Rfam assigns this 304-nucleotide RNA from Aquilegia coerulea to the family "Plant signal recognition particle RNA". Taxonomically the source falls in Aquilegia (Eukaryota, Tracheophyta, Euphyllophyta, Ranunculaceae). The base pairs follow the family's consensus structure, which is taken from published work.
[Rfam]
RNA sequence: ACCGAGCUUGGUAACGCGAGCUUAUAACUCAAGUGAGGGUAUUAAGGUGAUUGGACUUGGGCUUUACUCUUUCUGGUUGGGCCUGAGAUAGCUAUUAUGUGACCUGCCCGUUCCAAGUUGGGAGUUGGGUUAUGUGGUGCGGGUGAAGACCUGUACCACGUGGCUCUUAGAGUGGAGGGUAAUGCGUCAGUCUGGCUUCACAGAGCAGCGAAAACUUCCCGCUCUCGACAGUGGAAGGAUAACGGGUCCAGCUCCUCUGGUCCAAUAUAACCAGCUAGGUUCAGCCCAACGGACAAUCGCUUUU
Numbered sequence: 001a002c003c004g005a006g007c008u009u010g011g012u013a014a015c016g017c018g019a020g021c022u023u024a025u026a027a028c029u030c031a032a033g034u035g036a037g038g039g040u041a042u043u044a045a046g047g048u049g050a051u052u053g054g055a056c057u058u059g060g061g062c063u064u065u066a067c068u069c070u071u072u073c074u075g076g077u078u079g080g081g082c083c084u085g086a087g088a089u090a091g092c093u094a095u096u097a098u099g100u101g102a103c104c105u106g107c108c109c110g111u112u113c114c115a116a117g118u119u120g121g122g123a124g125u126u127g128g129g130u131u132a133u134g135u136g137g138u139g140c141g142g143g144u145g146a147a148g149a150c151c152u153g154u155a156c157c158a159c160g161u162g163g164c165u166c167u168u169a170g171a172g173u174g175g176a177g178g179g180u181a182a183u184g185c186g187u188c189a190g191u192c193u194g195g196c197u198u199c200a201c202a203g204a205g206c207a208g209c210g211a212a213a214a215c216u217u218c219c220c221g222c223u224c225u226c227g228a229c230a231g232u233g234g235a236a237g238g239a240u241a242a243c244g245g246g247u248c249c250a251g252c253u254c255c256u257c258u259g260g261u262c263c264a265a266u267a268u269a270a271c272c273a274g275c276u277a278g279g280u281u282c283a284g285c286c287c288a289a290c291g292g293a294c295a296a297u298c299g300c301u302u303u304u
Base pairs, nucleotide, nucleotide: 001040002039003038004023005022006021007020008019009018010017028037029036030035044303045302046301047300048299049298050297051296052295053294056291058288059287060286062284063283066280067279069278070277073274074273075272076271077270078269079263080262081261082260083259085257086256087255090253091252093251099249101248102247103246104245105244106243108238109237111236112235113234114233115232117229118228119227120226121225122224123223124222125221127166128165129164130163131162132161133160134159135158136157137156138155139154140153141152142151143150144149167172174219175218176217177216178215183212185210186209187208192203193202194201